[Rfam]
RNA: Group II catalytic intron D1-D4-7
Organism: Paraburkholderia sp. BL23I1N1
RNA sequence: CCAAUUGUUCCGUCAAUCGUAACCUACCGGUGCAUGCUGGGCUGGUAACGGCCUGGUGUGAAGCCACCGGAACAACGUACCCGUUCAUUGAACGACGGCACGCUCGCGAGAGGGUGGCGUUGUCUGCCAGCGUCGAGGCGGAUGGGGUG
Numbered sequence: 001c002c003a004a005u006u007g008u009u010c011c012g013u014c015a016a017u018c019g020u021a022a023c024c025u026a027c028c029g030g031u032g033c034a035u036g037c038u039g040g041g042c043u044g045g046u047a048a049c050g051g052c053c054u055g056g057u058g059u060g061a062a063g064c065c066a067c068c069g070g071a072a073c074a075a076c077g078u079a080c081c082c083g084u085u086c087a088u089u090g091a092a093c094g095a096c097g098g099c100a101c102g103c104u105c106g107c108g109a110g111a112g113g114g115u116g117g118c119g120u121u122g123u124c125u126g127c128c129a130g131c132g133u134c135g136a137g138g139c140g141g142a143u144g145g146g147g148u149g
Stems, first nucleotide, its partner, number of pairs: 002019001004017004028069005033060012082094005095120003104111002123142006